[Rfam]
RNA sequence: AGUAGUCUGAGGGGAAGGUGGCUCCAGUACGAGAGGAACGAGUUGUCGGUGCCUCUGGUUUACCAGUUGUCUGAUAAGGCAUUGCUGGGCAGCUACGCACUGGACGAUAAAGGCUGAAAGCAUCUAAGCCUGAGGUGUCCCCUGAAAAUAGAUUGCUUAGGACGCGAGUAGAAGACUCGUUUGAUGGGGUAGGGAUGUAAGCUUAGAGGUUUUUUCCGAUUUGUUUAGUCCGCUGCUUCCAAUUGUUCGCUUG
Numbered sequence: 001a002g003u004a005g006u007c008u009g010a011g012g013g014g015a016a017g018g019u020g021g022c023u024c025c026a027g028u029a030c031g032a033g034a035g036g037a038a039c040g041a042g043u044u045g046u047c048g049g050u051g052c053c054u055c056u057g058g059u060u061u062a063c064c065a066g067u068u069g070u071c072u073g074a075u076a077a078g079g080c081a082u083u084g085c086u087g088g089g090c091a092g093c094u095a096c097g098c099a100c101u102g103g104a105c106g107a108u109a110a111a112g113g114c115u116g117a118a119a120g121c122a123u124c125u126a127a128g129c130c131u132g133a134g135g136u137g138u139c140c141c142c143u144g145a146a147a148a149u150a151g152a153u154u155g156c157u158u159a160g161g162a163c164g165c166g167a168g169u170a171g172a173a174g175a176c177u178c179g180u181u182u183g184a185u186g187g188g189g190u191a192g193g194g195a196u197g198u199a200a201g202c203u204u205a206g207a208g209g210u211u212u213u214u215u216c217c218g219a220u221u222u223g224u225u226u227a228g229u230c231c232g233c234u235g236c237u238u239c240c241a242a243u244u245g246u247u248c249g250c251u252u253g
Base pairs, nucleotide, nucleotide: 001157002156003155004154005153006152007151008150011143012142013141014140017047018046019045020044021043022042023041024040048101049100050099051098052097056095057094058093063088064087065086066085067084068081069080070079071078072077104138105137106136111131112130113129114128115127160248161247162246163245164180165179166178167177168176185241186240187239188237189236190235191234192233193231194230195229201224202223205220208217